[Rfam]
The record is a 120-nucleotide RNA sequence from Gossypium stocksii, which matches "Plastid-psbA-1 3UTR RNA" in Rfam. The family's consensus secondary structure was predicted with LocARNA. The family's RNA type in Rfam is cis-regulatory element. A reference for the family is Richter et al. (2023), "Retrograde signaling in plants: A critical review focusing on the GUN pathway and beyond", Plant Commun. The organism belongs to Gossypium, within Eukaryota. About the family: Plastid psbA-1 is a non-coding RNA (ncRNA) present in plastids.

Nucleotides: 120
Stems, first nucleotide, its partner, number of pairs: 010021003067120012082105002086101004
Number, partner (000 for none) and nucleotide at each position: 001000u002000u003000g004000a005000a006000a007000u008000g009000a010021a011020a012019u013000u014000a015000a016000a017000c018000a019012a020011u021010u022000g023000a024000u025000a026000a027000a028000a029000a030000a031000u032000u033000a034000c035000a036000a037000g038000u039000u040000a041000a042000g043000a044000c045000a046000g047000g048000u049000a050000u051000a052000u053000g054000a055000g056000u057000u058000u059000u060000u061000g062000a063000a064000a065000a066000u067120a068119a069118a070117g071116g072115a073114g074113c075112a076111a077110u078109a079000c080000c081000a082105a083104c084000a085000c086101u087100c088099u089098u090000g091000c092000u093000a094000g095000a096000a097000c098089a099088a100087g101086a102000a103000a104083g105082u106000g107000g108000u109078u110077a111076u112075u113074g114073c115072u116071c117070c118069u119068u120067u